[Rfam]
RNA: Mammalian CPEB3 ribozyme
RNA sequence: UUUGCAAGUUUAAGGCCAUAGCAGAAGCACUCAUGGUGUGGCCAUGUCAGAUUUCAACAAAUCUACAAAUUCUUCU
Dot-bracket structure: .............((((..[[.[[[[(((.......))))))).....((((((....)))))).....]]]].]]
Numbered sequence: 001u002u003u004g005c006a007a008g009u010u011u012a013a014g015g016c017c018a019u020a021g022c023a024g025a026a027g028c029a030c031u032c033a034u035g036g037u038g039u040g041g042c043c044a045u046g047u048c049a050g051a052u053u054u055c056a057a058c059a060a061a062u063c064u065a066c067a068a069a070u071u072c073u074u075c076u
Stems, first nucleotide, its partner, number of pairs: 014043004020076002023073004027039003049064006